RNA sequence: UAAAAGGGCCCGUUGGCUAUAUAUGCCAUGCAUGGUUUAGGCCCUCCACUGUAUGGACAUCAAGACAUAUCGCUGGCAAAAUCUCUGAACCCUUCAGUAGGGUUGGCACGCUUUGCCGAACCUUCAU
Numbered sequence: 001u002a003a004a005a006g007g008g009c010c011c012g013u014u015g016g017c018u019a020u021a022u023a024u025g026c027c028a029u030g031c032a033u034g035g036u037u038u039a040g041g042c043c044c045u046c047c048a049c050u051g052u053a054u055g056g057a058c059a060u061c062a063a064g065a066c067a068u069a070u071c072g073c074u075g076g077c078a079a080a081a082u083c084u085c086u087g088a089a090c091c092c093u094u095c096a097g098u099a100g101g102g103u104u105g106g107c108a109c110g111c112u113u114u115g116c117c118g119a120a121c122c123u124u125c126a127u
Stems, first nucleotide, its partner, number of pairs: 008077003012073001014028004029048002032045001034043003049072001051070005097125001099123003103119006

Shown here is a 127-nucleotide RNA from Chara braunii, a member of the family "U11 spliceosomal RNA".
The family's consensus secondary structure is taken from published work.
It is annotated as a spliceosomal small nuclear RNA.
The match comes from Rfam's covariance-model search (50 bits).
A reference for the family is Montzka and Steitz (1988), "Additional low-abundance human small nuclear ribonucleoproteins: U11, U12, etc", Proc Natl Acad Sci U S A.
Lineage of the source: Eukaryota > Charophyceae > Charales > Characeae > Chara.